[Rfam]
RNA sequence: GAGAUAUGAUGAUAUAUUAUUUGGUCCGUGUUUCUGAUUUCACCGUGACCGAUAACUUUUUAACCAAUCUCUGAUCUC
Numbered sequence: 001g002a003g004a005u006a007u008g009a010u011g012a013u014a015u016a017u018u019a020u021u022u023g024g025u026c027c028g029u030g031u032u033u034c035u036g037a038u039u040u041c042a043c044c045g046u047g048a049c050c051g052a053u054a055a056c057u058u059u060u061u062a063a064c065c066a067a068u069c070u071c072u073g074a075u076c077u078c
Base pairs, nucleotide, nucleotide: 001078002077003076004075
RNA: Small nucleolar RNA SNORD18